[Rfam]
RNA sequence: ACCGGGUUGAGUGGCGUCAACUUGUAACAGCAAGUUUCUGGCUGGGUAGAGUCCUUUAAGGGAUGUGUCACUAUAGUGAGGUAUCUAUCAACGUCAUGUGGAGGGGUCGCCCAUUCCAAACCGGGAGUAAACAUCGUGUGAUAACCGGAUGGUUCGUCAAACGAGGUUUCUAAGGAAGUGUGCACCGCCUCAGGCUGGAUAACAGAGCAGGGAAAAGCACUCGCUCUCAGUAGUGGGAGGAACACGACCCUGAAUGGCGAUGGUCCUUCGGUGUAGAUCACUGGCACCUCUCGAGGAGACAC
Number, nucleotide and partner (000 for none) at each position: 001a047002c046003c045004g023005g022006g021007u020008u019009g018010a017011g000012u000013g000014g000015c000016g000017u010018c009019a008020a007021c006022u005023u004024g000025u000026a000027a000028c044029a043030g042031c000032a000033a000034g000035u000036u000037u000038c000039u000040g000041g000042c030043u029044g028045g003046g002047u001048a000049g300050a000051g000052u297053c296054c295055u294056u293057u000058a291059a000060g290061g289062g288063a000064u286065g285066u284067g281068u280069c000070a278071c276072u275073a274074u273075a272076g000077u270078g269079a268080g267081g266082u000083a264084u000085c263086u262087a261088u260089c259090a000091a000092c000093g258094u257095c256096a255097u254098g000099u252100g000101g000102a000103g251104g250105g249106g248107u247108c246109g245110c000111c240112c239113a000114u238115u237116c236117c235118a234119a000120a231121c230122c000123g228124g227125g226126a225127g224128u223129a169130a168131a167132c166133a000134u164135c163136g162137u161138g000139u159140g158141a157142u156143a154144a153145c152146c151147g000148g000149a000150u000151g146152g145153u144154u143155c000156g142157u141158c140159a139160a000161a137162c136163g135164a134165g000166g132167u131168u130169u129170c174171u000172a000173a000174g170175g000176a000177a221178g220179u219180g218181u217182g000183c000184a000185c000186c000187g000188c212189c211190u210191c000192a000193g000194g000195c205196u204197g203198g000199a000200u000201a000202a000203c197204a196205g195206a000207g000208c000209a000210g190211g189212g188213a000214a000215a000216a000217g181218c180219a179220c178221u177222c000223g128224c127225u126226c125227u124228c123229a000230g121231u120232a000233g000234u118235g117236g116237g115238a114239g112240g111241a000242a000243c000244a000245c109246g108247a107248c106249c105250c104251u103252g099253a000254a097255u096256g095257g094258c093259g089260a088261u087262g086263g085264u083265c000266c081267u080268u079269c078270g077271g000272u075273g074274u073275a072276g071277a000278u070279c000280a068281c067282u000283g000284g066285c065286a064287c000288c062289u061290c060291u058292c000293g056294a055295g054296g053297a052298g000299a000300c049301a000302c000
Rfam assigns this 302-nucleotide sequence from Achlya hypogyna to the family "Metazoan signal recognition particle RNA". The signal recognition particle (SRP) is a universally conserved ribonucleoprotein. Taxonomically the source falls in Achlya (Eukaryota, Oomycota, Saprolegniomycetes, Achlyaceae). The base pairs follow the family's consensus structure, which is taken from published work. For this family Rfam cites "Crystal structure of the ribonucleoprotein core of the signal recognition particle" (Batey et al., Science, 2000). Gene Ontology terms of the family: signal recognition particle, endoplasmic reticulum targeting and SRP-dependent cotranslational protein targeting to membrane, signal sequence recognition.